[Rfam]
RNA sequence: AGGUUUCCGUAGAAUCAAUGCAUCACCAUGCGGAAGAGAGCGUGAAAGCUAGUGGGGCUCUCUUUGAGCCCUGCGACACUGUCAAAUUGCCUGGAACUCCCGCUAAGUCGGCGCCACCGCUGUGAUCGGGAAACCUUUCGCAGCACCGCGGGUAACGCCCGCGGGUAUGGUAACAGGGCGCCGAAUAGGGACGAUGGGCAGCCAAGUCCUAAGGGCGAUUUCUCGUCUACGGAUGCAGUUCACAGACUAAACGGCAGUGGGUUCCAGACGUCCCGUAUGUUCACAUCGCCAAGACUUCUUGGUGCUGAUGAGCUCAGAACGGUCGGGAGCCUAAGAUAUAGUCGGACCGCCCCGGAAGGGGAGC
Number, nucleotide and partner (000 for none) at each position: 001a000002g000003g000004u000005u000006u000007c000008c000009g000010u000011a000012g000013a000014a000015u000016c000017a000018a000019u000020g000021c000022a000023u000024c000025a000026c000027c000028a000029u000030g000031c000032g000033g000034a000035a000036g000037a000038g000039a000040g000041c000042g000043u000044g000045a000046a000047a000048g000049c000050u000051a000052g000053u000054g000055g000056g000057g000058c000059u000060c000061u000062c000063u000064u000065u000066g000067a000068g000069c000070c000071c000072u000073g000074c000075g000076a000077c259078a258079c257080u256081g255082u000083c253084a000085a000086a000087u000088u200089g199090c198091c197092u196093g195094g000095a000096a000097c000098u191099c190100c189101c188102g000103c000104u000105a000106a000107g000108u000109c000110g000111g000112c000113g000114c000115c000116a000117c000118c000119g000120c000121u000122g000123u000124g000125a000126u000127c000128g000129g000130g000131a000132a000133a000134c000135c000136u000137u000138u000139c000140g000141c000142a000143g000144c000145a000146c000147c000148g000149c000150g000151g000152g000153u000154a000155a000156c000157g000158c000159c000160c000161g000162c000163g000164g000165g000166u000167a000168u000169g000170g000171u000172a000173a000174c000175a000176g000177g000178g000179c000180g000181c000182c000183g000184a000185a000186u000187a000188g101189g100190g099191a098192c000193g000194a000195u093196g092197g091198g090199c089200a088201g239202c238203c000204a000205a000206g234207u233208c232209c231210u000211a000212a000213g000214g227215g226216c225217g224218a223219u000220u000221u000222c000223u218224c217225g216226u215227c214228u000229a000230c000231g209232g208233a207234u206235g000236c000237a000238g202239u201240u000241c000242a000243c344244a000245g343246a342247c341248u340249a339250a000251a000252c000253g083254g000255c081256a080257g079258u078259g077260g000261g330262u329263u328264c327265c326266a000267g324268a323269c322270g000271u000272c000273c000274c000275g000276u000277a000278u000279g000280u000281u000282c000283a000284c000285a000286u000287c000288g000289c000290c000291a000292a000293g000294a000295c000296u000297u000298c000299u000300u000301g000302g000303u000304g000305c000306u000307g000308a000309u000310g000311a000312g000313c000314u000315c000316a000317g000318a000319a000320c000321g000322g269323u268324c267325g000326g265327g264328a263329g262330c261331c000332u000333a000334a000335g000336a000337u000338a000339u249340a248341g247342u246343c245344g243345g000346a000347c000348c000349g000350c361351c360352c359353c358354g000355g000356a000357a000358g353359g352360g351361g350362a000363g000364c000
RNA: Group I catalytic intron